The family of this 139-nucleotide RNA sequence from Leptolyngbya iicbica is "Guanidine-I riboswitch aptamer". Taxonomically the source falls in Leptolyngbya iicbica (Bacteria, Bacillati, Leptolyngbyales, Leptolyngbya). Rfam links the family to the GO term regulation of gene expression. It scores 74 bits against the family's covariance model.
RNA sequence: CUUACGAGCUUCUAGGGUUCCGGCUCAGCGGUGUUAUCGGCGCUUGAGUGCCUGGUCCGAGAGAAGCGGCUGGUUUAGGAAUUUCUGAGCAGGCCUCAGACGUUUUGCCAGUACACGGCGGGAUAAAAGCCCGGGAGGU
Numbered sequence: 001c002u003u004a005c006g007a008g009c010u011u012c013u014a015g016g017g018u019u020c021c022g023g024c025u026c027a028g029c030g031g032u033g034u035u036a037u038c039g040g041c042g043c044u045u046g047a048g049u050g051c052c053u054g055g056u057c058c059g060a061g062a063g064a065a066g067c068g069g070c071u072g073g074u075u076u077a078g079g080a081a082u083u084u085c086u087g088a089g090c091a092g093g094c095c096u097c098a099g100a101c102g103u104u105u106u107g108c109c110a111g112u113a114c115a116c117g118g119c120g121g122g123a124u125a126a127a128a129g130c131c132c133g134g135g136a137g138g139u
Stems, first nucleotide, its partner, number of pairs: 008067005015058002020055002022052001023049006069112006114134001116137001120132003